[Rfam]
The record is a 120-nucleotide RNA sequence from Fulvivirga imtechensis, which matches "Group II catalytic intron D1-D4-2" in Rfam. Taxonomically the source falls in Fulvivirga imtechensis (Bacteria, Pseudomonadati, Cytophagia, Fulvivirga). The pairing is the family consensus, mapped onto this sequence. Rfam links the family to the GO term Group II intron splicing. The literature on the family includes a 2001 paper in Trends Genet by Bonen and Vogel, "The ins and outs of group II introns". From the family's description: Group II introns are found in rRNA, tRNA and mRNA of organelles in fungi, plants and protists, and also in mRNA in bacteria.
RNA sequence: GGCGCAUUGGCUCACCGGAGGCAAGCUUUCAGGAGCAGCCUUCAAACCACCUUACGGUGCUGGAUGAGUAAUCAUCUGGUAUUGAGCGGUUAAGGAAAAGGCUCUGAUUAGGAGUCAGGU
Numbered sequence: 001g002g003c004g005c006a007u008u009g010g011c012u013c014a015c016c017g018g019a020g021g022c023a024a025g026c027u028u029u030c031a032g033g034a035g036c037a038g039c040c041u042u043c044a045a046a047c048c049a050c051c052u053u054a055c056g057g058u059g060c061u062g063g064a065u066g067a068g069u070a071a072u073c074a075u076c077u078g079g080u081a082u083u084g085a086g087c088g089g090u091u092a093a094g095g096a097a098a099a100g101g102c103u104c105u106g107a108u109u110a111g112g113a114g115u116c117a118g119g120u
Stems, first nucleotide, its partner, number of pairs: 001016002004013001017043006025036004048119001050095005055089001056083002059080003063076004100116006